This 59-nucleotide RNA sequence from Candidatus Nanopelagicus abundans belongs to the Rfam family "msiK RNA".
The source organism's lineage runs through Bacteria, Actinomycetota, Actinomycetes, Candidatus Nanopelagicales and Candidatus Nanopelagicus.
The family's RNA type in Rfam is cis-regulatory element.
The match comes from Rfam's covariance-model search (62 bits).
The family's consensus secondary structure is taken from published work.

[Rfam]
RNA sequence: CGUGAGACCUUCAUCCAACGGAUCGUCGGGUACGUACCUACCCGGAGAAGGAGUAAUAG
Number, nucleotide and partner (000 for none) at each position: 001c000002g000003u000004g000005a000006g000007a000008c000009c051010u050011u049012c000013a000014u046015c045016c000017a000018a000019c000020g000021g000022a000023u000024c000025g000026u000027c044028g043029g042030g041031u040032a039033c000034g000035u000036a000037c000038c000039u032040a031041c030042c029043c028044g027045g015046a014047g000048a000049a011050g010051g009052a000053g000054u000055a000056a000057u000058a000059g000